[Rfam]
RNA: radC RNA
Nucleotides: 141
Base pairs, nucleotide, nucleotide: 011038012037014035019033020032021031022030023029042063043062044061045060046059047058050086051085052084053083064081065080066079067078068077069076114141115140116139121136122135123134124133125132126131
Number, partner (000 for none) and nucleotide at each position: 001000u002000g003000c004000u005000u006000u007000g008000c009000g010000g011038c012037a013000c014035g015000c016000g017000u018000u019033g020032c021031u022030g023029a024000c025000c026000u027000g028000a029023u030022c031021a032020g033019c034000a035014c036000a037012u038011g039000c040000c041000a042063g043062c044061a045060g046059c047058c048000a049000g050086g051085g052084u053083c054000u055000u056000u057000c058047g059046g060045c061044u062043g063042c064081c065080g066079c067078g068077g069076g070000a071000a072000u073000c074000c075000c076069c077068u078067c079066g080065u081064g082000c083053g084052a085051c086050c087000c088000a089000c090000c091000a092000g093000u094000c095000c096000g097000c098000u099000u100000c101000g102000c103000a104000u105000c106000g107000a108000c109000c110000c111000a112000c113000c114141g115140c116139g117000g118000a119000c120000g121136g122135g123134c124133g125132u126131u127000u128000c129000a130000c131126g132125a133124c134123g135122c136121c137000g138000a139116u140115g141114c